[Rfam]
RNA: tRNA
Nucleotides: 071
Stems, first nucleotide, its partner, number of pairs: 001070007010024004026042005047063005
Number, partner (000 for none) and nucleotide at each position: 001070u002069a003068a004067g005066g006065a007064g008000u009000a010024g011023u012022u013021u014000a015000a016000u017000g018000g019000a020000a021013a022012a023011a024010c025000g026042a027041g028040g029039a030038a031000c032000u033000u034000u035000g036000a037000c038030u039029u040028c041027c042026u043000u044000g045000u046000u047063g048062u049061g050060g051059g052000u053000u054000c055000a056000a057000u058000u059051c060050c061049c062048a063047u064007c065006u066005c067004c068003u069002u070001a071000a